A member of the RNA family "CyVA-1 RNA" from Nostocales cyanobacterium LEGE 11386, 77 nucleotides long. Rfam classes the family as a small RNA. Rfam's curators write: Cyanobacteria, Acidobacteria (1 example), Verrucomicrobia (1 example).
RNA sequence: GUACUGGAUGGGUGUUAUGCCGCAGUGACCCAUUGUUGUGUAUCGAAGGAGAGCGAUUUCAGAUACAUGAACAGUAC
Dot-bracket structure: ((((((..((((................))))....((((((((.................))))))))..))))))